MIR821 microRNA precursor family: a 274-nucleotide sequence from Oryza sativa. Rfam links the family to the GO terms miRNA-mediated post-transcriptional gene silencing and RISC complex. On this family, see Luo et al., FEBS Lett 2006: "Rice embryogenic calli express a unique set of microRNAs, suggesting regulatory roles of microRNAs in plant post-embryogenic development". It is one of the family's seed sequences.
RNA sequence: GAUAUCAGCUGAAAAAGUCAUCAACAAAAAAGUUGAAUAACUCAUCAAGAUCUAAAACUUUUAUUUUGGUCAUUUCUUCAUACGACAAAGUGAUAGUAACAUUGUUCACAGAAUUGACAUAUCUCUUAUCUGGUUUUAUAAACUAUAACACAUAUAUGUAAAAUUUGUGAAUAAUAUUACUAACAUUUCGUCAGAUGAAGAAAUAAAAAAAUAAAAGUUAUAGAUCUUGAUGAGUUAUUCAACUUUGUUGUUGAUGACUUUUUCAAUUGAAAUC
Numbered sequence: 001g002a003u004a005u006c007a008g009c010u011g012a013a014a015a016a017g018u019c020a021u022c023a024a025c026a027a028a029a030a031a032g033u034u035g036a037a038u039a040a041c042u043c044a045u046c047a048a049g050a051u052c053u054a055a056a057a058c059u060u061u062u063a064u065u066u067u068g069g070u071c072a073u074u075u076c077u078u079c080a081u082a083c084g085a086c087a088a089a090g091u092g093a094u095a096g097u098a099a100c101a102u103u104g105u106u107c108a109c110a111g112a113a114u115u116g117a118c119a120u121a122u123c124u125c126u127u128a129u130c131u132g133g134u135u136u137u138a139u140a141a142a143c144u145a146u147a148a149c150a151c152a153u154a155u156a157u158g159u160a161a162a163a164u165u166u167g168u169g170a171a172u173a174a175u176a177u178u179a180c181u182a183a184c185a186u187u188u189c190g191u192c193a194g195a196u197g198a199a200g201a202a203a204u205a206a207a208a209a210a211a212u213a214a215a216a217g218u219u220a221u222a223g224a225u226c227u228u229g230a231u232g233a234g235u236u237a238u239u240c241a242a243c244u245u246u247g248u249u250g251u252u253g254a255u256g257a258c259u260u261u262u263u264c265a266a267u268u269g270a271a272a273u274c
Base pairs, nucleotide, nucleotide: 014261015260016259017258018257019256020255021254023252024251026249027248030245031244032243033242034241035240036239037238038237039236040235041234042233044231045230046229047228048227049226050225051224052223053222056219057218058217059216060215061214062213063212064211065210066209067208070206072204073203074202075201077199078198079197080196081195084192085191086190088188089187090186091185092184094182095181096180097179098178099177101175102174103173104172105171106170107169108168109167110166111165112164114162115161117159118158119157120156121155122154131145132144133143134142135141136140